mir-46/mir-47/mir-281 microRNA precursor family: an 89-nucleotide sequence from Haemaphysalis longicornis. The family has 57 seed sequences and 307 matches in Rfam 15.1. On this family, see Lai et al., Genome Biol 2003: "Computational identification of Drosophila microRNA genes". The base pairs follow the family's consensus structure, which was predicted with RNAalifold.

RNA sequence: AGGUCGCUGUCUCAAAGAGAGCAAUCCGUGGACAGUGUGCGGAAUCAAACUACGACUGUCAUGGAGUCGCUCUCUUUAAGGCGGAGGCC
Numbered sequence: 001a002g003g004u005c006g007c008u009g010u011c012u013c014a015a016a017g018a019g020a021g022c023a024a025u026c027c028g029u030g031g032a033c034a035g036u037g038u039g040c041g042g043a044a045u046c047a048a049a050c051u052a053c054g055a056c057u058g059u060c061a062u063g064g065a066g067u068c069g070c071u072c073u074c075u076u077u078a079a080g081g082c083g084g085a086g087g088c089c
Stems, first nucleotide, its partner, number of pairs: 014077005020071003025065004031060003035056002
About this RNA:
Gene Ontology terms of the family: RISC complex and miRNA-mediated post-transcriptional gene silencing.